The record is a 58-nucleotide sequence from Synechococcus sp. RCC307, which matches "Glutamine-II riboswitch aptamer" in Rfam.
NCBI's taxonomy places the organism under Bacteria, Bacillati, Cyanophyceae, Synechococcales, Synechococcus.
[Rfam]
RNA sequence: UCACGUUGGCCCCGGCAAGGGGUGCAGUCAGACCCGCGCCAGGCAACGGGGACGCGGG
Numbered sequence: 001u002c003a004c005g006u007u008g009g010c011c012c013c014g015g016c017a018a019g020g021g022g023u024g025c026a027g028u029c030a031g032a033c034c035c036g037c038g039c040c041a042g043g044c045a046a047c048g049g050g051g052a053c054g055c056g057g058g
Base pairs, nucleotide, nucleotide: 004048005047006046007045008044010022011021012020013019033058034057035056036055037054038053039051040050